[Rfam]
RNA sequence: UUGCUGUGAUUAUCUUAGGACACCUUUGGAAUACCUAUGAAAAAACCCAGUAAGUUCUUUCUGAGCAAC
Numbered sequence: 001u002u003g004c005u006g007u008g009a010u011u012a013u014c015u016u017a018g019g020a021c022a023c024c025u026u027u028g029g030a031a032u033a034c035c036u037a038u039g040a041a042a043a044a045a046c047c048c049a050g051u052a053a054g055u056u057c058u059u060u061c062u063g064a065g066c067a068a069c
Stems, first nucleotide, its partner, number of pairs: 001068004